[Rfam]
RNA: Mammalian CPEB3 ribozyme
Organism: Crocodylus porosus
RNA sequence: AGAGUUCACAAGUUUGAGGCCAUAGCAGAAGUGCUCACAGCACAGCCUGUUAAAUUCCAAUGAAUCUGCUAUUUUUGCU
Numbered sequence: 001a002g003a004g005u006u007c008a009c010a011a012g013u014u015u016g017a018g019g020c021c022a023u024a025g026c027a028g029a030a031g032u033g034c035u036c037a038c039a040g041c042a043c044a045g046c047c048u049g050u051u052a053a054a055u056u057c058c059a060a061u062g063a064a065u066c067u068g069c070u071a072u073u074u075u076u077g078c079u
Stems, first nucleotide, its partner, number of pairs: 018047003024079007031043003051068002054065004